[Rfam]
A member of the RNA family "S10-Clostridia ribosomal protein leader" from Jeotgalibacillus campisalis, 103 nucleotides long. Pairs were carried over by alignment from the consensus structure, which is taken from published work. It scores 39 bits against the family's covariance model.
Nucleotides: 103
Stems, first nucleotide, its partner, number of pairs: 014073003018070004025062003080102004087097002
Number, partner (000 for none) and nucleotide at each position: 001000u002000g003000a004000c005000u006000g007000c008000g009000a010000u011000g012000a013000a014073g015072c016071g017000g018070g019069a020068g021067g022000u023000u024000g025062c026061c027060g028000a029000c030000a031000c032000a033000c034000c035000a036000g037000g038000c039000c040000g041000c042000u043000u044000u045000g046000c047000c048000a049000u050000g051000g052000c053000u054000g055000a056000u057000g058000u059000g060027u061026g062025g063000g064000a065000a066000a067021u068020u069019u070018u071016c072015g073014c074000g075000g076000a077000g078000a079000a080102u081101g082100u083099c084000u085000a086000u087097u088096c089000c090000u091000a092000a093000a094000u095000a096088g097087g098000c099083g100082a101081u102080a103000a